[Rfam]
RNA sequence: GGGUGAUGUGAUGGCAUACCAUCUUUCGGGACUGACUCUAGAAAUGGAGAGUUCCUUCUAUUUUACUGAUCACUU
Numbered sequence: 001g002g003g004u005g006a007u008g009u010g011a012u013g014g015c016a017u018a019c020c021a022u023c024u025u026u027c028g029g030g031a032c033u034g035a036c037u038c039u040a041g042a043a044a045u046g047g048a049g050a051g052u053u054c055c056u057u058c059u060a061u062u063u064u065a066c067u068g069a070u071c072a073c074u075u
Stems, first nucleotide, its partner, number of pairs: 001075006
The record is a 75-nucleotide RNA from Lates calcarifer, which matches "Small nucleolar RNA SNORD2" in Rfam. The match comes from Rfam's covariance-model search (66 bits). On this family, see Zhou et al., Gene 2004: "Identification of a novel box C/D snoRNA from mouse nucleolar cDNA library". The base pairs follow the family's consensus structure, which was predicted with WAR. It is annotated as a C/D-box small nucleolar RNA. The source organism's lineage runs through Eukaryota, Gnathostomata, Eurypterygia, Ctenosquamata and Lates. The family has 17 seed sequences and 1,116 matches in Rfam 15.1.